[Rfam]
RNA sequence: AGCUUUUUGAAUCCGUGCAGAGAUUUCGUCAGACACCCACCCAUUAGGGUUGGUCAGACUUCCAAGAUAAGUGGAGUU
Numbered sequence: 001a002g003c004u005u006u007u008u009g010a011a012u013c014c015g016u017g018c019a020g021a022g023a024u025u026u027c028g029u030c031a032g033a034c035a036c037c038c039a040c041c042c043a044u045u046a047g048g049g050u051u052g053g054u055c056a057g058a059c060u061u062c063c064a065a066g067a068u069a070a071g072u073g074g075a076g077u078u
Stems, first nucleotide, its partner, number of pairs: 002077005008071001011068003016064002020061003024058003028054003
The family of this 78-nucleotide RNA sequence from Schistosoma mansoni is "mir-3492 microRNA precursor family". The match comes from Rfam's covariance-model search (51 bits). Rfam links the family to the GO terms RISC complex and miRNA-mediated post-transcriptional gene silencing.